[Rfam]
RNA sequence: GGCAGAGUAGGUAUUUGUGCGUUAAGUGUCAGUGGAACGGGAAGUUGUCCAUUGAACGAAAAAUGAAUUUUCAUUUGCGGUGCAUAUAUCGCAUUCCGCUGCC
Number, nucleotide and partner (000 for none) at each position: 001g103002g102003c101004a100005g099006a000007g000008u000009a000010g090011g089012u088013a087014u086015u000016u084017g083018u082019g081020c079021g078022u077023u000024a000025a000026g057027u056028g000029u055030c054031a053032g052033u051034g050035g049036a048037a000038c000039g000040g096041g095042a094043a000044g092045u000046u000047g000048u036049c035050c034051a033052u032053u031054g030055a029056a027057c026058g000059a000060a000061a076062a075063a074064u073065g000066a000067a000068u000069u000070u000071u000072c000073a064074u063075u062076u061077g022078c021079g020080g000081u019082g018083c017084a016085u000086a014087u013088a012089u011090c010091g000092c044093a000094u042095u041096c040097c000098g000099c005100u004101g003102c002103c001

The record is a 103-nucleotide RNA sequence from Clostridium botulinum, which matches "THF (Tetrahydrofolate) riboswitch aptamer" in Rfam. Tetrahydrofolate (THF) riboswitch was first reported for Ames et al. as an RNA motif in 5' untranslated (5'-UTR)regions of folate transport and biosynthesis genes in Firmicutes genomes. The organism belongs to Clostridium botulinum C, within Bacteria. A reference for the family is Ames et al. (2010), "A eubacterial riboswitch class that senses the coenzyme tetrahydrofolate", Chem Biol.